Source information
The record is an 88-nucleotide RNA from Equus caballus, which matches "mir-9014 microRNA precursor family" in Rfam. The base pairs follow the family's consensus structure, which was predicted with RNAalifold.
RNA sequence: GGAGCCAUAGAGAGGGAUCCCAAUCCAGCCUUAGAAAAAGAAACCUGGCAUGGAAGUUCUGGAGAUUGGCGACCAUCCUAAUGACUUA
Numbered sequence: 001g002g003a004g005c006c007a008u009a010g011a012g013a014g015g016g017a018u019c020c021c022a023a024u025c026c027a028g029c030c031u032u033a034g035a036a037a038a039a040g041a042a043a044c045c046u047g048g049c050a051u052g053g054a055a056g057u058u059c060u061g062g063a064g065a066u067u068g069g070c071g072a073c074c075a076u077c078c079u080a081a082u083g084a085c086u087u088a
Stems, first nucleotide, its partner, number of pairs: 002087003006083003010079001012077002015074002018071001020069006029062002038060001040058002045053003

Gene Ontology terms of the family: RISC complex and miRNA-mediated post-transcriptional gene silencing. The source organism's lineage runs through Eukaryota, Craniata, Gnathostomata, Sarcopterygii and Equus. The match comes from Rfam's covariance-model search (80 bits).